A member of the RNA family "TD-1 RNA" from Treponema parvum, 124 nucleotides long. The source organism's lineage runs through Bacteria, Spirochaetota, Spirochaetia, Treponemataceae and Treponema. The base pairs follow the family's consensus structure, which is taken from published work. Its Rfam clan is "TD (Treponema denticola) motifs". The match comes from Rfam's covariance-model search (66 bits).

RNA sequence: GUUAAAUGCCGAGUUUGCGCAAGCGCAAACAUCGCUUAUAAUAUGCUGUUUCUCACUCCGUUACGAAACAGAAAAUUCGGCAACCUUCAAGAUUUGAUAAUCUUUUCGCUUGCCGAAUUUUAAA
Numbered sequence: 001g002u003u004a005a006a007u008g009c010c011g012a013g014u015u016u017g018c019g020c021a022a023g024c025g026c027a028a029a030c031a032u033c034g035c036u037u038a039u040a041a042u043a044u045g046c047u048g049u050u051u052c053u054c055a056c057u058c059c060g061u062u063a064c065g066a067a068a069c070a071g072a073a074a075a076u077u078c079g080g081c082a083a084c085c086u087u088c089a090a091g092a093u094u095u096g097a098u099a100a101u102c103u104u105u106u107c108g109c110u111u112g113c114c115g116a117a118u119u120u121u122a123a124a
Base pairs, nucleotide, nucleotide: 011033012032013030014029015028016027017026018025019024046071047070048069049068050067051066052065075118076117077116078115079114080113081112082111083110086108089104090103091102092101093100094099